[Rfam]
RNA: Histidine operon leader
Organism: Kluyvera genomosp. 3
RNA sequence: CCAUCAUCACCAUCAUCCUGACUAGUCUUUCAGGCGAUGUGUGCUGGGAGACGUUCAGAUCUUCCAGUGGUGCAUGAACGCAAGAGAGCCCCGGAAGAUCAUCUUCCGGGGCUUUUUUUUG
Numbered sequence: 001c002c003a004u005c006a007u008c009a010c011c012a013u014c015a016u017c018c019u020g021a022c023u024a025g026u027c028u029u030u031c032a033g034g035c036g037a038u039g040u041g042u043g044c045u046g047g048g049a050g051a052c053g054u055u056c057a058g059a060u061c062u063u064c065c066a067g068u069g070g071u072g073c074a075u076g077a078a079c080g081c082a083a084g085a086g087a088g089c090c091c092c093g094g095a096a097g098a099u100c101a102u103c104u105u106c107c108g109g110g111g112c113u114u115u116u117u118u119u120u121g
Stems, first nucleotide, its partner, number of pairs: 008043003011039004017034005044067008082118016